[Rfam]
RNA sequence: AAAGCGAGGCAGUGAUGUCUCGUUGAGUGAUGCAGGAGUCAGCCGAGGCCAUAGUAGCGGCGCAAGCCGUGAAGGGC
Numbered sequence: 001a002a003a004g005c006g007a008g009g010c011a012g013u014g015a016u017g018u019c020u021c022g023u024u025g026a027g028u029g030a031u032g033c034a035g036g037a038g039u040c041a042g043c044c045g046a047g048g049c050c051a052u053a054g055u056a057g058c059g060g061c062g063c064a065a066g067c068c069g070u071g072a073a074g075g076g077c
Stems, first nucleotide, its partner, number of pairs: 002024001004023008039046002048077003057070005
Group II catalytic intron D1-D4-1: a 77-nucleotide RNA sequence from Lacticaseibacillus manihotivorans. Taxonomically the source falls in Lacticaseibacillus manihotivorans (Bacteria, Bacillati, Bacillota, Bacilli). The base pairs follow the family's consensus structure. It scores 60 bits against the family's covariance model.